The record is an 86-nucleotide sequence from Histophilus somni, which matches "sRNA-Xcc1" in Rfam. The base pairs follow the family's consensus structure, which was predicted with RNAalifold. A reference for the family is Chen et al. (2011), "sRNA-Xcc1, an integron-encoded transposon- and plasmid-transferred trans-acting sRNA, is under the positive control of the key virulence regulators HrpG and HrpX of Xanthomonas campestris pathovar campestris", RNA Biol. It is annotated as a small RNA.

[Rfam]
RNA sequence: GGUCGGGAGUGCGGCGAAUACAACACUCGAAAGGGGAAUAAGUCCAGUAGAUUUUGUGCUACUUUUCGGCUCCCGACCGCCCUAUC
Numbered sequence: 001g002g003u004c005g006g007g008a009g010u011g012c013g014g015c016g017a018a019u020a021c022a023a024c025a026c027u028c029g030a031a032a033g034g035g036g037a038a039u040a041a042g043u044c045c046a047g048u049a050g051a052u053u054u055u056g057u058g059c060u061a062c063u064u065u066u067c068g069g070c071u072c073c074c075g076a077c078c079g080c081c082c083u084a085u086c
Stems, first nucleotide, its partner, number of pairs: 001078009013045002015042001017039001026035003046063005